Rfam assigns this 65-nucleotide RNA sequence from Musa balbisiana to the family "Plastid-clpP 5UTR RNA". Pairs were carried over by alignment from the consensus structure, which was predicted with LocARNA.

RNA sequence: CAUUCUGUUCUAAGAACAAAGAGCAGCAGAUAUCUAUACCCGAUAAGUACCAAUCCGCAAUGGGA
Dot-bracket structure: ..((.(((((...))))).)).................(((.....(.(....).).....))).
Plastid clpP is a non-coding RNA (ncRNA) recognised in plastids. It was found in the prime untranslated region (5UTR) of a protease complex subunit (clpP) in plastids, suggesting a posible cis-regulatory function.